[Rfam]
mir-5928 microRNA precursor family: a 75-nucleotide RNA from Haemonchus placei.
The source organism's lineage runs through Eukaryota, Eumetazoa, Protostomia, Chromadorea and Haemonchus.
RNA sequence: GGCCCAAAUCUGAAGCAAGGUAGAUUAAUAAGGUUAGCUGGUUAUACUAUUCUACUGUACUUCUAAAUUGGGCCC
Numbered sequence: 001g002g003c004c005c006a007a008a009u010c011u012g013a014a015g016c017a018a019g020g021u022a023g024a025u026u027a028a029u030a031a032g033g034u035u036a037g038c039u040g041g042u043u044a045u046a047c048u049a050u051u052c053u054a055c056u057g058u059a060c061u062u063c064u065a066a067a068u069u070g071g072g073c074c075c
Stems, first nucleotide, its partner, number of pairs: 001074007009066001012063004017058001019056005026049002029046002032043004